[Rfam]
A member of the RNA family "RpsF leader" from Morganella morganii, 84 nucleotides long. The base pairs follow the family's consensus structure. The match comes from Rfam's covariance-model search (70 bits). For this family Rfam cites "An S6:S18 complex inhibits translation of E. coli rpsF" (Babina et al., RNA, 2015). Taxonomically the source falls in Morganella morganii subsp. morganii (Bacteria, Pseudomonadati, Pseudomonadota, Morganella). Conserved and widely distributed to many bacterial species RNA structure. The family's RNA type in Rfam is cis-regulatory leader.

RNA sequence: GCCGCACUUAAACAAGUUCCUUGCCUCUCAGGGUUGCGGUUGCCCGGACAGGAGGCUAAUAAUCCGUAAGGAGCACUACUAAUG
Dot-bracket structure: ...............(((((((((((((..(((.........))).....))))))...........)))))))..........
Numbered sequence: 001g002c003c004g005c006a007c008u009u010a011a012a013c014a015a016g017u018u019c020c021u022u023g024c025c026u027c028u029c030a031g032g033g034u035u036g037c038g039g040u041u042g043c044c045c046g047g048a049c050a051g052g053a054g055g056c057u058a059a060u061a062a063u064c065c066g067u068a069a070g071g072a073g074c075a076c077u078a079c080u081a082a083u084g
Stems, first nucleotide, its partner, number of pairs: 016074007023056006031045003